[Rfam]
Potassium channel RNA editing signal: a 114-nucleotide RNA sequence from Ixodes scapularis. Gene Ontology term of the family: adenosine to inosine editing.
RNA sequence: GUCGGCUACGGGGAUAUCUGUCCGACCACGCCUCUGGGCAAGAUUGUCGGUAGCGUGUGCUGCAUCUGCGGUGUGCUCGUCAUCGCGCUGCCCAUCCCCAUCAUCGUCAACAAC
Number, nucleotide and partner (000 for none) at each position: 001g114002u113003c000004g111005g000006c000007u000008a107009c106010g105011g104012g000013g102014a101015u100016a000017u000018c000019u000020g095021u094022c000023c000024g000025a000026c000027c000028a000029c000030g000031c000032c000033u000034c000035u000036g000037g077038g076039c075040a074041a000042g000043a000044u000045u000046g000047u000048c000049g063050g000051u000052a000053g000054c000055g000056u000057g000058u000059g000060c000061u000062g000063c049064a000065u000066c000067u000068g000069c000070g000071g000072u000073g000074u040075g039076c038077u037078c000079g000080u000081c000082a000083u000084c000085g000086c000087g000088c000089u000090g000091c000092c000093c000094a021095u020096c000097c000098c000099c000100a015101u014102c013103a000104u011105c010106g009107u008108c000109a000110a000111c004112a000113a002114c001

Lineage of the source: Eukaryota > Eumetazoa > Bilateria > Ixodoidea > Ixodes. The family's RNA type in Rfam is cis-regulatory element.